[Rfam]
RNA: SAM riboswitch aptamer (S box leader)
RNA sequence: UUCUUAUCCAGAGAGGUGGAGGGACUGGCCCUUUGAAGCCUCGGCAGCAGGUUCUUAUGAACACUGUGCCAAUUCCAGCAAGCGUACUGCUUGAAAGAUGAGAA
Numbered sequence: 001u002u003c004u005u006a007u008c009c010a011g012a013g014a015g016g017u018g019g020a021g022g023g024a025c026u027g028g029c030c031c032u033u034u035g036a037a038g039c040c041u042c043g044g045c046a047g048c049a050g051g052u053u054c055u056u057a058u059g060a061a062c063a064c065u066g067u068g069c070c071a072a073u074u075c076c077a078g079c080a081a082g083c084g085u086a087c088u089g090c091u092u093g094a095a096a097g098a099u100g101a102g103a104a
Stems, first nucleotide, its partner, number of pairs: 001104008013042005021031003025078004043070004048066002051062004074096001079093006
Dot-bracket structure: ((((((((....(((((...(((.[[[[)))......)))))((((.((.((((....))))..))))))...(]]]]((((((...))))))..)))))))))